[Rfam]
RNA sequence: UUGUUAUGAUGAGUCCACACUUCAUGGUCCGUGUUUCUGAAUGCUGUGAUUUCAGUGGAAGUUCUGAACGA
Numbered sequence: 001u002u003g004u005u006a007u008g009a010u011g012a013g014u015c016c017a018c019a020c021u022u023c024a025u026g027g028u029c030c031g032u033g034u035u036u037c038u039g040a041a042u043g044c045u046g047u048g049a050u051u052u053c054a055g056u057g058g059a060a061g062u063u064c065u066g067a068a069c070g071a
Stems, first nucleotide, its partner, number of pairs: 001071004
RNA: Small nucleolar RNA SNORD18
Organism: Synaphobranchus kaupii